[Rfam]
Small Cajal body specific RNA 6: a 271-nucleotide RNA from Sinocyclocheilus rhinocerous. Pairs were carried over by alignment from the consensus structure, which is taken from published work. For this family Rfam cites "Cajal body-specific small nuclear RNAs: a novel class of 2'-O-methylation and pseudouridylation guide RNAs" (Darzacq et al., EMBO J, 2002).
RNA sequence: GGUCAGUGAUGUGAUGUAAAAGGUCUGAUGUCCAGCACUUCUUCCAGUCUCCUCGUCCCUCCCAGCCGGCCCUACUAAUACUCCCAGCAUGCUCUAGUUGUGCAGCCCUGGUUUGAUGUGGCGGCUGAUAUAAUGGAUGUUUCUGCUGCAUAAGAGUCUCUUUUAGAGGAUCCAGUGAGACUCUGACAGAAACAUCCCACAGAAACAUGACACACAGGAGGGCUGGACUGAAGGAGGCUGGUCAGCUGAUCUCAAAAAUCAUUCUGAGACC
Numbered sequence: 001g002g003u004c005a006g007u008g009a010u011g012u013g014a015u016g017u018a019a020a021a022g023g024u025c026u027g028a029u030g031u032c033c034a035g036c037a038c039u040u041c042u043u044c045c046a047g048u049c050u051c052c053u054c055g056u057c058c059c060u061c062c063c064a065g066c067c068g069g070c071c072c073u074a075c076u077a078a079u080a081c082u083c084c085c086a087g088c089a090u091g092c093u094c095u096a097g098u099u100g101u102g103c104a105g106c107c108c109u110g111g112u113u114u115g116a117u118g119u120g121g122c123g124g125c126u127g128a129u130a131u132a133a134u135g136g137a138u139g140u141u142u143c144u145g146c147u148g149c150a151u152a153a154g155a156g157u158c159u160c161u162u163u164u165a166g167a168g169g170a171u172c173c174a175g176u177g178a179g180a181c182u183c184u185g186a187c188a189g190a191a192a193c194a195u196c197c198c199a200c201a202g203a204a205a206c207a208u209g210a211c212a213c214a215c216a217g218g219a220g221g222g223c224u225g226g227a228c229u230g231a232a233g234g235a236g237g238c239u240g241g242u243c244a245g246c247u248g249a250u251c252u253c254a255a256a257a258a259u260c261a262u263u264c265u266g267a268g269a270c271c
Stems, first nucleotide, its partner, number of pairs: 001271004035252001037250001039248001043227007059220004063127006084111004090105001092102001135197007153184008162175002

By type it is a small Cajal body RNA. Rfam links the family to the GO terms RNA processing and nucleolus. Rfam describes the family as follows. U88 is small Cajal body specific RNA (scaRNA). scaRNAs are a novel class of small nuclear RNAs which localise to the Cajal bodies.